c-di-GMP-I riboswitch aptamer: an 86-nucleotide sequence from Pontibacillus marinus. The base pairs follow the family's consensus structure, which is taken from published work. Lineage of the source: Bacteria > Bacillati > Bacilli > Bacillaceae > Pontibacillus marinus. Gene Ontology term of the family: cyclic-di-GMP binding. A search with the family's covariance model found it, with a score of 75 bits.

[Rfam]
RNA sequence: AUAACUAUAGGGCAAACUUAUCGAAAGGUAAGGACGCAAAGCUACGGACCUAAGGUAUAAAGUACGAUGGUCGCCUGGCUGCUUAA
Numbered sequence: 001a002u003a004a005c006u007a008u009a010g011g012g013c014a015a016a017c018u019u020a021u022c023g024a025a026a027g028g029u030a031a032g033g034a035c036g037c038a039a040a041g042c043u044a045c046g047g048a049c050c051u052a053a054g055g056u057a058u059a060a061a062g063u064a065c066g067a068u069g070g071u072c073g074c075c076u077g078g079c080u081g082c083u084u085a086a
Stems, first nucleotide, its partner, number of pairs: 012037002017032006040080004046075002048071003055065004